[Rfam]
RNA sequence: CGUUAUUCUCAGGGCGGGGUGCAAUUCCCCACCGGCGGUAUCUGGCUUUGAGGAGCCAGGAGCCCGCGAGCGCUUGCAAGGCCUACGGCCGGGCAAGGUCAGCAGAUCUGGUGCGAUGCCAGAGCCGACGGUCACAGUCCGGAUGAAAGAGAAUCGCG
Numbered sequence: 001c002g003u004u005a006u007u008c009u010c011a012g013g014g015c016g017g018g019g020u021g022c023a024a025u026u027c028c029c030c031a032c033c034g035g036c037g038g039u040a041u042c043u044g045g046c047u048u049u050g051a052g053g054a055g056c057c058a059g060g061a062g063c064c065c066g067c068g069a070g071c072g073c074u075u076g077c078a079a080g081g082c083c084u085a086c087g088g089c090c091g092g093g094c095a096a097g098g099u100c101a102g103c104a105g106a107u108c109u110g111g112u113g114c115g116a117u118g119c120c121a122g123a124g125c126c127g128a129c130g131g132u133c134a135c136a137g138u139c140c141g142g143a144u145g146a147a148a149g150a151g152a153a154u155c156g157c158g
Stems, first nucleotide, its partner, number of pairs: 003156001005154006017029003031138002033127002035067004062125002070103002107123005129141003
The family of this 158-nucleotide RNA sequence from Comamonas sp. JNW is "FMN riboswitch aptamer (RFN element)". Taxonomically the source falls in Comamonas (Bacteria, Pseudomonadota, Betaproteobacteria, Comamonadaceae). From the family's description: The RFN element is a highly conserved domain that is found frequently in the 5'-untranslated regions of prokaryotic mRNAs that encode for flavin mononucleotide (FMN) biosynthesis and transport proteins.